Annotation
A member of the RNA family "TPP riboswitch aptamer (THI element)" from Thalassotalea sp. LPB0316, 139 nucleotides long. NCBI's taxonomy places the organism under Bacteria, Pseudomonadota, Alteromonadales, Colwelliaceae, Thalassotalea. It scores 61 bits against the family's covariance model. Rfam's curators write: Vitamin B(1) in its active form thiamin pyrophosphate (TPP) is an essential coenzyme that is synthesised by coupling of pyrimidine and thiazole moieties in bacteria. The previously detected thiamin-regulatory element, thi box was extended, resulting in a new, highly conserved RNA secondary structure, the THI element, which is widely distributed in eubacteria and also occurs in some archaea. Analysis of operon structures identified a large number of new candidate thiamin-regulated genes, mostly transporters, in various prokaryotic organisms. The THI element is a riboswitch that directly binds to TPP to regulate gene expression through a variety of mechanisms in archaea, bacteria and eukaryotes. through a variety of mechanisms in archaea, bacteria and eukaryotes. Tandem TPP riboswitches have been reported where both TPP riboswitches respond independently to TPP. The structure of TPP riboswitch has been reported for Escherichia coli and Arabidopsis thaliana.

[Rfam]
RNA sequence: ACCGAAGCCAAGGGGUGCAAUAUCUCAAUCACUCAAUUUAACAAGAGUUGAGCAAGUUGAUAUAGCGCUGAGACCGUUUUCGGAACCCUUAGAACCUGAACUGGAUUAUACCAGCGUAGGAAUGGUUAAGCGUUAUCAC
Numbered sequence: 001a002c003c004g005a006a007g008c009c010a011a012g013g014g015g016u017g018c019a020a021u022a023u024c025u026c027a028a029u030c031a032c033u034c035a036a037u038u039u040a041a042c043a044a045g046a047g048u049u050g051a052g053c054a055a056g057u058u059g060a061u062a063u064a065g066c067g068c069u070g071a072g073a074c075c076g077u078u079u080u081c082g083g084a085a086c087c088c089u090u091a092g093a094a095c096c097u098g099a100a101c102u103g104g105a106u107u108a109u110a111c112c113a114g115c116g117u118a119g120g121a122a123u124g125g126u127u128a129a130g131c132g133u134u135a136u137c138a139c
Stems, first nucleotide, its partner, number of pairs: 006127005011089004016083001017068002021064003075082002095120004101114004